[Rfam]
RNA: Plant signal recognition particle RNA
RNA sequence: GUCGAGCUUGGUAACACGGGCUUGUGAUCCGAGUGGAGACAAUAAGAUGUUGGGACUUUGGGCCGACCUCUUUGUGCCGGGUUCUUGGAUGGCUUUCUAUUGGCCUGCCCAUUCCAAGUCGGAAGCUGAGGGAUCGGACUCGAGCGAAGGCUUGUGGUUCGGCCUCUCUUAGAGCGGAGGAGACUGCGUGAGGCUGGUUUCACAAAGCAGCGUCCACCUCCUGCUUUCGAUGGUGGAAGGAUGACGAGCCGGUGCCUUCUGAACCCACUAAUGACCCAAAAAGCUGGCUUCAACUGGACCAACAGCUUU
Numbered sequence: 001g002u003c004g005a006g007c008u009u010g011g012u013a014a015c016a017c018g019g020g021c022u023u024g025u026g027a028u029c030c031g032a033g034u035g036g037a038g039a040c041a042a043u044a045a046g047a048u049g050u051u052g053g054g055a056c057u058u059u060g061g062g063c064c065g066a067c068c069u070c071u072u073u074g075u076g077c078c079g080g081g082u083u084c085u086u087g088g089a090u091g092g093c094u095u096u097c098u099a100u101u102g103g104c105c106u107g108c109c110c111a112u113u114c115c116a117a118g119u120c121g122g123a124a125g126c127u128g129a130g131g132g133a134u135c136g137g138a139c140u141c142g143a144g145c146g147a148a149g150g151c152u153u154g155u156g157g158u159u160c161g162g163c164c165u166c167u168c169u170u171a172g173a174g175c176g177g178a179g180g181a182g183a184c185u186g187c188g189u190g191a192g193g194c195u196g197g198u199u200u201c202a203c204a205a206a207g208c209a210g211c212g213u214c215c216a217c218c219u220c221c222u223g224c225u226u227u228c229g230a231u232g233g234u235g236g237a238a239g240g241a242u243g244a245c246g247a248g249c250c251g252g253u254g255c256c257u258u259c260u261g262a263a264c265c266c267a268c269u270a271a272u273g274a275c276c277c278a279a280a281a282a283g284c285u286g287g288c289u290u291c292a293a294c295u296g297g298a299c300c301a302a303c304a305g306c307u308u309u
Stems, first nucleotide, its partner, number of pairs: 001040003004023007028037003044308003048304006056296001058293003061289005068283002071280003074276001076275001078273001079266006088258001091256002094254001100252005106246002109240002112238005118231009128168005134162007141154005169174001176221005186213004195204002